Description
A member of the RNA family "Small Cajal body specific RNA 21" from Otolemur garnettii, 138 nucleotides long. Gene Ontology terms of the family: Cajal body, RNA processing and nucleolus. The source organism's lineage runs through Eukaryota, Tetrapoda, Amniota, Strepsirrhini and Otolemur. About the family: scaRNAs are a specific class of small nuclear RNAs which localise to the Cajal bodies and guide the modification of RNA polymerase II transcribed spliceosomal RNAs U1, U2, U4, U5 and U12. ACA68 (SCARNA21) is a member of the H/ACA class of snoRNAs that guide the sites of modification of uridines to pseudouridines.
RNA sequence: UGGUUGGUUUCCUGGGGAGUGGGCUCAGCAUACCCCACCUCCCCUCAGCCAAGCCUAGAGUAGAGAGGCCAGGCAUCCUCUCUGUGGGGGAGGCAUUCAAGUAAGGUGCCUCGCCUAGGCUAUCCAAGCCUCACAUUG
Numbered sequence: 001u002g003g004u005u006g007g008u009u010u011c012c013u014g015g016g017g018a019g020u021g022g023g024c025u026c027a028g029c030a031u032a033c034c035c036c037a038c039c040u041c042c043c044c045u046c047a048g049c050c051a052a053g054c055c056u057a058g059a060g061u062a063g064a065g066a067g068g069c070c071a072g073g074c075a076u077c078c079u080c081u082c083u084g085u086g087g088g089g090g091a092g093g094c095a096u097u098c099a100a101g102u103a104a105g106g107u108g109c110c111u112c113g114c115c116u117a118g119g120c121u122a123u124c125c126a127a128g129c130c131u132c133a134c135a136u137u138g
Stems, first nucleotide, its partner, number of pairs: 002055002004052003014043004019038005065132005072125002077119003086112004